The family of this 175-nucleotide RNA from Salmo trutta is "Small nucleolar RNA SNORA81". Its family is annotated with nucleolus and RNA processing in the Gene Ontology. The family's consensus secondary structure was predicted with WAR. The match comes from Rfam's covariance-model search (67 bits). By type it is an H/ACA-box small nucleolar RNA. A reference for the family is Gu et al. (2005), "A novel experimental approach for systematic identification of box H/ACA snoRNAs from eukaryotes", Nucleic Acids Res.

RNA sequence: CCCUUUUUUAAAGCACCCUGCUAAAAUUGUGGGGGUGAAGCCUCUGGGCUUGACCCUUGCGGGCAUGUGAGUAUGGGUACACCAAGCAAGAAAAGUGAAGCCAGCAUUGCAAAUGAGACUAGGGUGGACCGCUUACUGUCCGGUGUCUUAUGUUUCAAGAUUCUGUGCUGCAAUC
Numbered sequence: 001c002c003c004u005u006u007u008u009u010a011a012a013g014c015a016c017c018c019u020g021c022u023a024a025a026a027u028u029g030u031g032g033g034g035g036u037g038a039a040g041c042c043u044c045u046g047g048g049c050u051u052g053a054c055c056c057u058u059g060c061g062g063g064c065a066u067g068u069g070a071g072u073a074u075g076g077g078u079a080c081a082c083c084a085a086g087c088a089a090g091a092a093a094a095g096u097g098a099a100g101c102c103a104g105c106a107u108u109g110c111a112a113a114u115g116a117g118a119c120u121a122g123g124g125u126g127g128a129c130c131g132c133u134u135a136c137u138g139u140c141c142g143g144u145g146u147c148u149u150a151u152g153u154u155u156c157a158a159g160a161u162u163c164u165g166u167g168c169u170g171c172a173a174u175c
Stems, first nucleotide, its partner, number of pairs: 016077002019073004026066002032057002035054002038051005103169005109163001111161001121146001123144001125142004